RNA sequence: UCGUGCUGGUGAUGAUUAAAGAGCUAGCAAUGGUGAAUUCGAUGAAUUUGUUCGCGUGCCGCUGGGUGCGCAGCAGUGGUGAUAUGCAUUCUUACGCAGUUCAUCUGAGGCACGC
Numbered sequence: 001u002c003g004u005g006c007u008g009g010u011g012a013u014g015a016u017u018a019a020a021g022a023g024c025u026a027g028c029a030a031u032g033g034u035g036a037a038u039u040c041g042a043u044g045a046a047u048u049u050g051u052u053c054g055c056g057u058g059c060c061g062c063u064g065g066g067u068g069c070g071c072a073g074c075a076g077u078g079g080u081g082a083u084a085u086g087c088a089u090u091c092u093u094a095c096g097c098a099g100u101u102c103a104u105c106u107g108a109g110g111c112a113c114g115c
Base pairs, nucleotide, nucleotide: 002114003113004112005111006110007109
RNA: Small nucleolar RNA Z188